[Rfam]
A member of the RNA family "ACEA small nucleolar RNA U3" from Plasmodium vivax, 237 nucleotides long.
On this family, see Zwieb, Nucleic Acids Res 1997: "The uRNA database".
Rfam classes the family as a C/D-box small nucleolar RNA.
Rfam describes the family as follows. Small nucleolar RNAs (snoRNAs) are involved in the processing and modification of rRNA in the nucleolus. There are two main classes of snoRNAs: the box C/D class, and the box H/ACA class.
RNA sequence: UCGACGAAUACUUAGUCAAGAUCAUUGCUAUAGUAUUUGUGAUGUUUUAUUGUUAUAAAUAAACAGAUUAUCAAAAGUGAUGAUGAAAAGGCGCGGCUCUAUAUAUGAAAAAAUUUCGAUUCCCUUCGAGUUCUUUAGAAUUUGUUGGGAAUCCGAAACAUAGAUGAUCAAUUUUGGCCUCCAGGGAUUCUUCCCUCGUUGGCCGAAAAAUCAGGAGCUUGUCGCCAGCUGAACUUA
Numbered sequence: 001u002c003g004a005c006g007a008a009u010a011c012u013u014a015g016u017c018a019a020g021a022u023c024a025u026u027g028c029u030a031u032a033g034u035a036u037u038u039g040u041g042a043u044g045u046u047u048u049a050u051u052g053u054u055a056u057a058a059a060u061a062a063a064c065a066g067a068u069u070a071u072c073a074a075a076a077g078u079g080a081u082g083a084u085g086a087a088a089a090g091g092c093g094c095g096g097c098u099c100u101a102u103a104u105a106u107g108a109a110a111a112a113a114u115u116u117c118g119a120u121u122c123c124c125u126u127c128g129a130g131u132u133c134u135u136u137a138g139a140a141u142u143u144g145u146u147g148g149g150a151a152u153c154c155g156a157a158a159c160a161u162a163g164a165u166g167a168u169c170a171a172u173u174u175u176g177g178c179c180u181c182c183a184g185g186g187a188u189u190c191u192u193c194c195c196u197c198g199u200u201g202g203c204c205g206a207a208a209a210a211u212c213a214g215g216a217g218c219u220u221g222u223c224g225c226c227a228g229c230u231g232a233a234c235u236u237a
Stems, first nucleotide, its partner, number of pairs: 001042003007037001009035004018029001021026001046067001050066005075236004093225005098216003104170001114158002118153007172209004177204001